[Rfam]
RNA sequence: CAGGUUCCGGUUCACGCCCGCAAGCCAGGUUCGAACUCCAGGGCGACCCGGCGACC
Numbered sequence: 001c002a003g004g005u006u007c008c009g010g011u012u013c014a015c016g017c018c019c020g021c022a023a024g025c026c027a028g029g030u031u032c033g034a035a036c037u038c039c040a041g042g043g044c045g046a047c048c049c050g051g052c053g054a055c056c
Stems, first nucleotide, its partner, number of pairs: 003056003007051004015045005